[Rfam]
RNA sequence: CUCCCAAAUUAUGACAUUCAGAGCAGAAAGUGGUUUCACCACCGGCUCUGAACUGAUGCCCUCUGGGAG
Numbered sequence: 001c002u003c004c005c006a007a008a009u010u011a012u013g014a015c016a017u018u019c020a021g022a023g024c025a026g027a028a029a030g031u032g033g034u035u036u037c038a039c040c041a042c043c044g045g046c047u048c049u050g051a052a053c054u055g056a057u058g059c060c061c062u063c064u065g066g067g068a069g
Stems, first nucleotide, its partner, number of pairs: 001069005017052008031041003
A member of the RNA family "Selenocysteine insertion sequence 1" from Desmophyllum pertusum, 69 nucleotides long. Gene Ontology term of the family: selenocysteine incorporation. The literature on the family includes a 1996 paper in RNA by Walczak et al., "A novel RNA structural motif in the selenocysteine insertion element of eukaryotic selenoprotein mRNAs". A search with the family's covariance model found it, with a score of 37 bits. Pairs were carried over by alignment from the consensus structure, which is taken from published work. Rfam classes the family as a cis-regulatory element.